RNA sequence: AGUUAUCAAGUGUAACAGCAACUCCAUGUGGACUGAGUACCAAUUUCCAGUGGAGAUGCUGUUACUUUUGAUGGUUAC
Numbered sequence: 001a002g003u004u005a006u007c008a009a010g011u012g013u014a015a016c017a018g019c020a021a022c023u024c025c026a027u028g029u030g031g032a033c034u035g036a037g038u039a040c041c042a043a044u045u046u047c048c049a050g051u052g053g054a055g056a057u058g059c060u061g062u063u064a065c066u067u068u069u070g071a072u073g074g075u076u077a078c
Base pairs, nucleotide, nucleotide: 006071007070008069012065013064014063015062016061017060018059019058022055023054024053025052026051027050029049030048031047